GP20-b RNA: a 60-nucleotide RNA from Clostridioides difficile.
RNA sequence: UGUCUACUAAGCGACGUAAAAAGUUAGACAAUACGUGAUGCUACCACGUAAAAAAGCGUA
Numbered sequence: 001u002g003u004c005u006a007c008u009a010a011g012c013g014a015c016g017u018a019a020a021a022a023g024u025u026a027g028a029c030a031a032u033a034c035g036u037g038a039u040g041c042u043a044c045c046a047c048g049u050a051a052a053a054a055a056g057c058g059u060a
Stems, first nucleotide, its partner, number of pairs: 001016004007027004034048004